The record is a 99-nucleotide RNA from Vibrio eleionomae, which matches "c-di-GMP-I-GGC riboswitch aptamer" in Rfam. The organism belongs to Vibrio, within Bacteria. The match comes from Rfam's covariance-model search (62 bits). A reference for the family is Smith et al. (2009), "Structural basis of ligand binding by a c-di-GMP riboswitch", Nat Struct Mol Biol.

RNA sequence: CACGCACAGGGCAAACCAUCUGUAAAGGUGGGACGCAAAGCUUCCGGCCUGAACCCCAGGUGGUACAGAUGUUCUGGGUAGGUAGCGGGGUUACCGAUG
Numbered sequence: 001c002a003c004g005c006a007c008a009g010g011g012c013a014a015a016c017c018a019u020c021u022g023u024a025a026a027g028g029u030g031g032g033a034c035g036c037a038a039a040g041c042u043u044c045c046g047g048c049c050u051g052a053a054c055c056c057c058a059g060g061u062g063g064u065a066c067a068g069a070u071g072u073u074c075u076g077g078g079u080a081g082g083u084a085g086c087g088g089g090g091u092u093a094c095c096g097a098u099g
Base pairs, nucleotide, nucleotide: 001099003096004095011036012035016031017030018029019028020027021026034085039092040091041090042089044088045087046086047083048082049081050080051079